RNA: Burkholderia RNA 11
Organism: Paraburkholderia ginsengiterrae
RNA sequence: GCAACCUGAAGCUGGCGCGCGAAAACCGGACCGUGUUUCUGAGCCUGCUGGGGAUUUCCUGGUUGUGGUUCGUCGGCGCGACGUUUCUCUCGUCGUUCUUCAGCUUUGCAAAAAAUGUGCUG
Numbered sequence: 001g002c003a004a005c006c007u008g009a010a011g012c013u014g015g016c017g018c019g020c021g022a023a024a025a026c027c028g029g030a031c032c033g034u035g036u037u038u039c040u041g042a043g044c045c046u047g048c049u050g051g052g053g054a055u056u057u058c059c060u061g062g063u064u065g066u067g068g069u070u071c072g073u074c075g076g077c078g079c080g081a082c083g084u085u086u087c088u089c090u091c092g093u094c095g096u097u098c099u100u101c102a103g104c105u106u107u108g109c110a111a112a113a114a115a116u117g118u119g120c121u122g
Stems, first nucleotide, its partner, number of pairs: 010049003014045002018041002021038003025034002051121002054118002057115001060112001067099002071095002074092003078088001080087002